Vibrio RNA AS7: a 169-nucleotide RNA sequence from Photobacterium gaetbulicola. The literature on the family includes a 2009 paper in Nucleic Acids Res by Liu et al., "Experimental discovery of sRNAs in Vibrio cholerae by direct cloning, 5S/tRNA depletion and parallel sequencing". Rfam's curators write: Identified by direct cloning an parallel sequencing experiments with 5S/tRNA depletion. Rfam's curators put it in the seed alignment. By type it is an antisense RNA.

RNA sequence: GGAGUCUGUAGCAGCAAUUUGCUGCGCUCGGUGAUGUCGCCUCCGAUAUGGUAGGGAAGGCCGCAGUUGGCAAACGAGACAAAUUCACCGCGCUCGAACAUGAUGAUUUCAGCAUCUUCGCUCAAGCGGCGGGCACGUGCGGCAGCGGAGGCUCCGCCUGCCACACCGC
Numbered sequence: 001g002g003a004g005u006c007u008g009u010a011g012c013a014g015c016a017a018u019u020u021g022c023u024g025c026g027c028u029c030g031g032u033g034a035u036g037u038c039g040c041c042u043c044c045g046a047u048a049u050g051g052u053a054g055g056g057a058a059g060g061c062c063g064c065a066g067u068u069g070g071c072a073a074a075c076g077a078g079a080c081a082a083a084u085u086c087a088c089c090g091c092g093c094u095c096g097a098a099c100a101u102g103a104u105g106a107u108u109u110c111a112g113c114a115u116c117u118u119c120g121c122u123c124a125a126g127c128g129g130c131g132g133g134c135a136c137g138u139g140c141g142g143c144a145g146c147g148g149a150g151g152c153u154c155c156g157c158c159u160g161c162c163a164c165a166c167c168g169c
Stems, first nucleotide, its partner, number of pairs: 001167002004164002008161003011025006032056001035053005060071003076154002080150001084147001088142001092140002095137002099133001101131002104128002107125002111122003